A member of the RNA family "mir-19 microRNA precursor family" from Eptatretus burgeri, 80 nucleotides long. Taxonomically the source falls in Eptatretus (Eukaryota, Eumetazoa, Myxini, Eptatretinae). A reference for the family is Lagos-Quintana et al. (2001), "Identification of novel genes coding for small expressed RNAs", Science. Rfam 15.1 lists 2,337 matches to the family in 651 species. The family's consensus secondary structure was predicted with RNAalifold. Clan: mir-19 clan.
RNA sequence: UGCGGCUGUUAGUUUUGCUGGUUUGCUUUCAGCUUUUUUAUCUGUACGCUGUGCAAAUCCAUGCAAAACUGACAGCGGUU
Numbered sequence: 001u002g003c004g005g006c007u008g009u010u011a012g013u014u015u016u017g018c019u020g021g022u023u024u025g026c027u028u029u030c031a032g033c034u035u036u037u038u039u040a041u042c043u044g045u046a047c048g049c050u051g052u053g054c055a056a057a058u059c060c061a062u063g064c065a066a067a068a069c070u071g072a073c074a075g076c077g078g079u080u
Base pairs, nucleotide, nucleotide: 003078005076006075007074008073009072010071011070012069013068014067015066016065017064018063020060021059022057023056024055025054026053028051031050032049033048